Rfam assigns this 166-nucleotide RNA from Geomicrobium sp. JCM 19039 to the family "M-box riboswitch aptamer (ykoK leader)". The match comes from Rfam's covariance-model search (150 bits). Taxonomically the source falls in Geomicrobium (Bacteria, Bacillati, Bacillota, Bacilli).
RNA sequence: AAUAUACCUCGUUAGGUGAGGCUCCUGUACGGAGAUACGCUGCUGCCCAAAAAUGUCCAAAGACGCCAAUGGGUGAACAGAGAUUAUCGAGAUAAGGUACUCUUUAAUGUAGCUGGCAUUCAUGCCUAUGCCGUACAGUGCUAAAGCUCUACGACGGAGACGAUAU
Numbered sequence: 001a002a003u004a005u006a007c008c009u010c011g012u013u014a015g016g017u018g019a020g021g022c023u024c025c026u027g028u029a030c031g032g033a034g035a036u037a038c039g040c041u042g043c044u045g046c047c048c049a050a051a052a053a054u055g056u057c058c059a060a061a062g063a064c065g066c067c068a069a070u071g072g073g074u075g076a077a078c079a080g081a082g083a084u085u086a087u088c089g090a091g092a093u094a095a096g097g098u099a100c101u102c103u104u105u106a107a108u109g110u111a112g113c114u115g116g117c118a119u120u121c122a123u124g125c126c127u128a129u130g131c132c133g134u135a136c137a138g139u140g141c142u143a144a145a146g147c148u149c150u151a152c153g154a155c156g157g158a159g160a161c162g163a164u165a166u
Base pairs, nucleotide, nucleotide: 005162008159009158010157011152012151013095015148016147017146020142021141022140025138026137027136028135029134030133031132032131039113040112041111042110043109045074046073047072048071049070054065055064056063057062080104081103082102083101086098087097088096115126116125117124